[Rfam]
RNA sequence: UGACUAAAAUGAUGAGAUUAUAGUUCAGCUGAAUUACCAUGUUGAAACGGGGAUCAUUUGUCUUUCGCCCCUAUCUGAUGUAGCAG
Numbered sequence: 001u002g003a004c005u006a007a008a009a010u011g012a013u014g015a016g017a018u019u020a021u022a023g024u025u026c027a028g029c030u031g032a033a034u035u036a037c038c039a040u041g042u043u044g045a046a047a048c049g050g051g052g053a054u055c056a057u058u059u060g061u062c063u064u065u066c067g068c069c070c071c072u073a074u075c076u077g078a079u080g081u082a083g084c085a086g
Base pairs, nucleotide, nucleotide: 004083005082006081008079